[Rfam]
RNA sequence: CCAGGGGACCGGGCGACCGCGGCUUUCGCAAGAGAGGCGAGGAAAGUCCGGGCUCCACGGAAUAACGGUGCCGGGUAACGCCCGGCCGGGGGGUUCGCCCCUUGAGGGAAAGUGCCACAGAAAGCAUACCGCCGGUCUUCGGGCCGGUAAGGGAGAAAGGGUGCGGCAAGAGCGCACCGCGCGGGUGGCAACAUCCGCGGCACGGCAAACCCCACCGGGUGCAAGACCGAAUAGGGGCGGCACAUGGGCCUGUUCCGGCUCGUCGCCCGGGUUGGUCGCUGGAGGCGAAGGGCAACCUUCGUCCUAGAGGAAUGGUCGCCCAGGUGCCUUGAAGGCGCUGGACAGAACCCGGCUUACAGGUCCCCUGGCAAA
Numbered sequence: 001c002c003a004g005g006g007g008a009c010c011g012g013g014c015g016a017c018c019g020c021g022g023c024u025u026u027c028g029c030a031a032g033a034g035a036g037g038c039g040a041g042g043a044a045a046g047u048c049c050g051g052g053c054u055c056c057a058c059g060g061a062a063u064a065a066c067g068g069u070g071c072c073g074g075g076u077a078a079c080g081c082c083c084g085g086c087c088g089g090g091g092g093g094u095u096c097g098c099c100c101c102u103u104g105a106g107g108g109a110a111a112g113u114g115c116c117a118c119a120g121a122a123a124g125c126a127u128a129c130c131g132c133c134g135g136u137c138u139u140c141g142g143g144c145c146g147g148u149a150a151g152g153g154a155g156a157a158a159g160g161g162u163g164c165g166g167c168a169a170g171a172g173c174g175c176a177c178c179g180c181g182c183g184g185g186u187g188g189c190a191a192c193a194u195c196c197g198c199g200g201c202a203c204g205g206c207a208a209a210c211c212c213c214a215c216c217g218g219g220u221g222c223a224a225g226a227c228c229g230a231a232u233a234g235g236g237g238c239g240g241c242a243c244a245u246g247g248g249c250c251u252g253u254u255c256c257g258g259c260u261c262g263u264c265g266c267c268c269g270g271g272u273u274g275g276u277c278g279c280u281g282g283a284g285g286c287g288a289a290g291g292g293c294a295a296c297c298u299u300c301g302u303c304c305u306a307g308a309g310g311a312a313u314g315g316u317c318g319c320c321c322a323g324g325u326g327c328c329u330u331g332a333a334g335g336c337g338c339u340g341g342a343c344a345g346a347a348c349c350c351g352g353c354u355u356a357c358a359g360g361u362c363c364c365c366u367g368g369c370a371a372a
Stems, first nucleotide, its partner, number of pairs: 001368010011357001012320007020039002023036005044355003048352005053221001055219002062254001066217005071085005086106001087104007107212002112210002114206003129152002131148007160178006179201001180199008225277004235268006246261005284303008
Dot-bracket structure: ((((((((((((((((((.((.(((((....))))).))....[[[.[[[[[(.((.....[...((((((((((.....)))))((((((((....))))))).)((...(((((............(((((((((....)))))))..)).......((((((.......))))))(((((((((....)))))))).)..)))..))))))))))).)...((((......((((((.....(((((...]..))))).)))))).....))))......((((((((....))))))))..........)))))))...........................]]]]]]]].).))))))))))....